[Rfam]
RNA sequence: UAUGAUACAUGCAGUUACUUUUCGCUUCUUUUUUUACUUUAGCGCCUGAUUUCAGGAGGCUUGCGCGUAAGAAUAGAAACGAAAAAUAGCGCCUAAGCCUCCCAUCGUGGAGGCUUUUUUGUU
Numbered sequence: 001u002a003u004g005a006u007a008c009a010u011g012c013a014g015u016u017a018c019u020u021u022u023c024g025c026u027u028c029u030u031u032u033u034u035u036a037c038u039u040u041a042g043c044g045c046c047u048g049a050u051u052u053c054a055g056g057a058g059g060c061u062u063g064c065g066c067g068u069a070a071g072a073a074u075a076g077a078a079a080c081g082a083a084a085a086a087u088a089g090c091g092c093c094u095a096a097g098c099c100u101c102c103c104a105u106c107g108u109g110g111a112g113g114c115u116u117u118u119u120u121g122u123u
Stems, first nucleotide, its partner, number of pairs: 014090004019085006026078004031073002034070004040054001055064001057062001095116008
RNA: Phenylalanine leader peptide
Organism: Yersinia intermedia